SAM riboswitch aptamer (S box leader): a 100-nucleotide RNA from Oceanobacillus piezotolerans.
RNA sequence: CUCUUAUCCAGAGAGGUGGAGGGACUGGCCCUUUGAAGCCUCGGCAGCAGACUUAGAAAGUACUGUGCCAAUUCCAGAAAGUUUUACUUGAAGAUAAGAA
Numbered sequence: 001c002u003c004u005u006a007u008c009c010a011g012a013g014a015g016g017u018g019g020a021g022g023g024a025c026u027g028g029c030c031c032u033u034u035g036a037a038g039c040c041u042c043g044g045c046a047g048c049a050g051a052c053u054u055a056g057a058a059a060g061u062a063c064u065g066u067g068c069c070a071a072u073u074c075c076a077g078a079a080a081g082u083u084u085u086a087c088u089u090g091a092a093g094a095u096a097a098g099a100a
Stems, first nucleotide, its partner, number of pairs: 002099007013042005021031003025077004043069004048065002051061004073092001078089001080088003